[Rfam]
RNA sequence: UGGUAGAUGCACCCUGAUAACUCACUCCCUUGGCUAGUUAUAUACUUACCAAGGGAUUUUUGU
Numbered sequence: 001u002g003g004u005a006g007a008u009g010c011a012c013c014c015u016g017a018u019a020a021c022u023c024a025c026u027c028c029c030u031u032g033g034c035u036a037g038u039u040a041u042a043u044a045c046u047u048a049c050c051a052a053g054g055g056a057u058u059u060u061u062g063u
Stems, first nucleotide, its partner, number of pairs: 002013003027055007036046002

Nitrogen stress-induced RNA 1: a 63-nucleotide RNA from Calothrix sp. 336/3.
The source organism's lineage runs through Bacteria, Bacillati, Cyanobacteriota, Nostocales and Calothrix.
For this family Rfam cites "Heterocyst-specific transcription of NsiR1, a non-coding RNA encoded in a tandem array of direct repeats in cyanobacteria" (Ionescu et al., J Mol Biol, 2010).